[Rfam]
RNA sequence: GGUUUCGAUUGGUGCAAACCGAAUCACCUUAAUUUGUAAUUUAAGAUGAAAAUUUCCCAUUGGGAACAAAAAGUUAUCCAUUAAGCGGGAAAAA
Numbered sequence: 001g002g003u004u005u006c007g008a009u010u011g012g013u014g015c016a017a018a019c020c021g022a023a024u025c026a027c028c029u030u031a032a033u034u035u036g037u038a039a040u041u042u043a044a045g046a047u048g049a050a051a052a053u054u055u056c057c058c059a060u061u062g063g064g065a066a067c068a069a070a071a072a073g074u075u076a077u078c079c080a081u082u083a084a085g086c087g088g089g090a091a092a093a094a
Stems, first nucleotide, its partner, number of pairs: 009023002012020001055090004059081002062078002065075003